[Rfam]
RNA sequence: UAUGCUAUACUAGACGGGUUGUGAAAGCAACCCUUGGCACUUCCUCCCUUUAGCCAAGCAUAUUAUACGCGGUUUAGCCGCCAAAGGAGAAACUUAUG
Numbered sequence: 001u002a003u004g005c006u007a008u009a010c011u012a013g014a015c016g017g018g019u020u021g022u023g024a025a026a027g028c029a030a031c032c033c034u035u036g037g038c039a040c041u042u043c044c045u046c047c048c049u050u051u052a053g054c055c056a057a058g059c060a061u062a063u064u065a066u067a068c069g070c071g072g073u074u075u076a077g078c079c080g081c082c083a084a085a086g087g088a089g090a091a092a093c094u095u096a097u098g
Stems, first nucleotide, its partner, number of pairs: 018031005033058006045089001047087004069081004